[Rfam]
RNA sequence: UGGCGGAGCGCGUGUACGGACUCUGCCCGAGGUGAUGCUCUGGUGUACUUCCCCGACAUCAGAUGAACACAUCGGGCAGGGCCCUGUACGCACCCCGCACCUUC
Numbered sequence: 001u002g003g004c005g006g007a008g009c010g011c012g013u014g015u016a017c018g019g020a021c022u023c024u025g026c027c028c029g030a031g032g033u034g035a036u037g038c039u040c041u042g043g044u045g046u047a048c049u050u051c052c053c054c055g056a057c058a059u060c061a062g063a064u065g066a067a068c069a070c071a072u073c074g075g076g077c078a079g080g081g082c083c084c085u086g087u088a089c090g091c092a093c094c095c096c097g098c099a100c101c102u103u104c
Stems, first nucleotide, its partner, number of pairs: 010091007018084002021081010032070003036066001039063008
Shown here is a 104-nucleotide sequence from Corynebacterium alimapuense, a member of the family "mraW RNA". Pairs were carried over by alignment from the consensus structure, which is taken from published work. Rfam 15.1 lists 851 matches to the family in 821 species. Rfam classes the family as a cis-regulatory element.